RNA sequence: ACGGGCACGGACGCUCGUGGUUCCACGCAGCAGCGACGUUUUAAAGCAGGACAGAUUGCAAAGCUUUAAAACUCGCAGAUUAGAUUUUGACAUGGAUGUCAAAAUCUAAUCCACU
Numbered sequence: 001a002c003g004g005g006c007a008c009g010g011a012c013g014c015u016c017g018u019g020g021u022u023c024c025a026c027g028c029a030g031c032a033g034c035g036a037c038g039u040u041u042u043a044a045a046g047c048a049g050g051a052c053a054g055a056u057u058g059c060a061a062a063g064c065u066u067u068a069a070a071a072c073u074c075g076c077a078g079a080u081u082a083g084a085u086u087u088u089g090a091c092a093u094g095g096a097u098g099u100c101a102a103a104a105u106c107u108a109a110u111c112c113a114c115u
Base pairs, nucleotide, nucleotide: 001018002017003016004015005014006013034075035074036073038072039071040070041069042068043067044066045065046064047063078111079110080109081108082107083106084105085104086103087102088101089100090099091098

This 115-nucleotide sequence from Treponema phagedenis belongs to the Rfam family "TD-2 RNA". On this family, see Weinberg et al., Nucleic Acids Res 2007: "Identification of 22 candidate structured RNAs in bacteria using the CMfinder comparative genomics pipeline". It scores 63 bits against the family's covariance model. It is annotated as a small RNA. Its Rfam clan is "TD (Treponema denticola) motifs".